This 77-nucleotide sequence from Ixodes scapularis belongs to the Rfam family "mir-305 microRNA precursor family". The family's consensus secondary structure was predicted with RNAalifold. Lineage of the source: Eukaryota > Bilateria > Panarthropoda > Ixodinae > Ixodes. The literature on the family includes a 2007 paper in Genome Biol by Weaver et al., "Computational and transcriptional evidence for microRNAs in the honey bee genome". Gene Ontology terms of the family: RISC complex and miRNA-mediated post-transcriptional gene silencing.

RNA sequence: CUAGUUAAUUGUACUUCAUCAGGUGCUCUGGAGUUCGGUUCGCACAACCAGGCAUCUUUUGGAGUGCAAAUGAUAAG
Dot-bracket structure: ((.(.....(((.(((((..(.(((((..((................)).))))).)..))))).))).....).))